[Rfam]
RNA sequence: UUCUGGUGCCCUUCAUUCCACCGGAAUCUGUCAUCCCAACAACCAGAUUUCAGUGAAAUGAAGCCCAUCAGAGG
Numbered sequence: 001u002u003c004u005g006g007u008g009c010c011c012u013u014c015a016u017u018c019c020a021c022c023g024g025a026a027u028c029u030g031u032c033a034u035c036c037c038a039a040c041a042a043c044c045a046g047a048u049u050u051c052a053g054u055g056a057a058a059u060g061a062a063g064c065c066c067a068u069c070a071g072a073g074g
Stems, first nucleotide, its partner, number of pairs: 011063006019055003023051004028046003
The record is a 74-nucleotide sequence from Tricholaema leucomelas, which matches "mir-205 microRNA precursor family" in Rfam. The family has 44 seed sequences and 1,154 matches in Rfam 15.1. Its family is annotated with miRNA-mediated post-transcriptional gene silencing and RISC complex in the Gene Ontology. Taxonomically the source falls in Tricholaema lacrymosa (Eukaryota, Opisthokonta, Sarcopterygii, Archelosauria). The base pairs follow the family's consensus structure, which was predicted with RNAalifold. A search with the family's covariance model found it, with a score of 77 bits.